Shown here is a 72-nucleotide RNA sequence from Blautia pseudococcoides, a member of the family "Group II catalytic intron D1-D4-1". It scores 69 bits against the family's covariance model.
RNA sequence: UAACCGUUAUCGCAAGAUAACGCUGAACAUACAGAAGUCAGCAGAGGUCAUAGUAGCCGAGAGGUGAAGGAC
Numbered sequence: 001u002a003a004c005c006g007u008u009a010u011c012g013c014a015a016g017a018u019a020a021c022g023c024u025g026a027a028c029a030u031a032c033a034g035a036a037g038u039c040a041g042c043a044g045a046g047g048u049c050a051u052a053g054u055a056g057c058c059g060a061g062a063g064g065u066g067a068a069g070g071a072c
Base pairs, nucleotide, nucleotide: 001025002024005022006021007020008019009018010017011016038045039044047072048071049070056065057064058063
NCBI's taxonomy places the organism under Bacteria, Bacillati, Bacillota, Clostridia, Blautia. On this family, see Lehmann and Schmidt, Crit Rev Biochem Mol Biol 2003: "Group II introns: structure and catalytic versatility of large natural ribozymes".